The record is a 137-nucleotide sequence from Zophobas morio, which matches "R2 RNA element" in Rfam. The family has 15 seed sequences and 3,698 matches in Rfam 15.1. It is annotated as a cis-regulatory element.

[Rfam]
RNA sequence: UGAGAAGUUUCAUGAGGAGGAUAGGUUUUAGCUGGUACGCGCGGUUUUUCCGAUUGAUUCCGGACGCGAAUCCAGCAUGCCCGUGAGCAAUAGAACAUCAGGCUCCGGGUAUCUUUCGAAGAUUUCCGACCUCCUCA
Numbered sequence: 001u002g003a004g005a006a007g008u009u010u011c012a013u014g015a016g017g018a019g020g021a022u023a024g025g026u027u028u029u030a031g032c033u034g035g036u037a038c039g040c041g042c043g044g045u046u047u048u049u050c051c052g053a054u055u056g057a058u059u060c061c062g063g064a065c066g067c068g069a070a071u072c073c074a075g076c077a078u079g080c081c082c083g084u085g086a087g088c089a090a091u092a093g094a095a096c097a098u099c100a101g102g103c104u105c106c107g108g109g110u111a112u113c114u115u116u117c118g119a120a121g122a123u124u125u126c127c128g129a130c131c132u133c134c135u136c137a
Stems, first nucleotide, its partner, number of pairs: 001137003016134005022128001024127002031076005040068004045063001046056001047052001078111006

From the family's description: This family represents the 3' UTR region of the R2 retrotransposable element. This family is known to interact with the R2-encoded reverse transcriptase in a reaction known as target primed reverse transcription (TPRT).